Glycine riboswitch aptamer: a 108-nucleotide RNA from Thermotalea metallivorans.
[Rfam]
RNA sequence: CUGAUAAAUGCGGGAGAGAGCCCAGGUUACGGGCCGCCGAAGGAACAAACCGAAAAAGUUUGCCAAUUUUGAGGUGAAAUUCUCAGGCAAAAGGACCGCAUUUUGACA
Numbered sequence: 001c002u003g004a005u006a007a008a009u010g011c012g013g014g015a016g017a018g019a020g021c022c023c024a025g026g027u028u029a030c031g032g033g034c035c036g037c038c039g040a041a042g043g044a045a046c047a048a049a050c051c052g053a054a055a056a057a058g059u060u061u062g063c064c065a066a067u068u069u070u071g072a073g074g075u076g077a078a079a080u081u082c083u084c085a086g087g088c089a090a091a092a093g094g095a096c097c098g099c100a101u102u103u104u105g106a107c108a
Base pairs, nucleotide, nucleotide: 006103007102008101009100010099011098012097013096020034021033022032023031036088037087038086039084040083043082044081045080049075050074